RNA: Small nucleolar RNA SNORA68
Organism: Collichthys lucidus
RNA sequence: UCUGCAGCCAAACCCAAAGCUCACUCCUCGCCCGUGGUGUGAAUUAGUCUGGCCUGCGAACAGAACCGACCCCUGUCGCCUUUCUCUGCCGCUGCCGUGCCUUUGAAAGUGAAUUCAGGGGUCAACACGA
Numbered sequence: 001u002c003u004g005c006a007g008c009c010a011a012a013c014c015c016a017a018a019g020c021u022c023a024c025u026c027c028u029c030g031c032c033c034g035u036g037g038u039g040u041g042a043a044u045u046a047g048u049c050u051g052g053c054c055u056g057c058g059a060a061c062a063g064a065a066c067c068g069a070c071c072c073c074u075g076u077c078g079c080c081u082u083u084c085u086c087u088g089c090c091g092c093u094g095c096c097g098u099g100c101c102u103u104u105g106a107a108a109g110u111g112a113a114u115u116c117a118g119g120g121g122u123c124a125a126c127a128c129g130a
Base pairs, nucleotide, nucleotide: 003058004057005056006055007054009052019044021042022041023040024039026037027036068123069122070121071120072119073118074117080109081108082107083106084105088100089099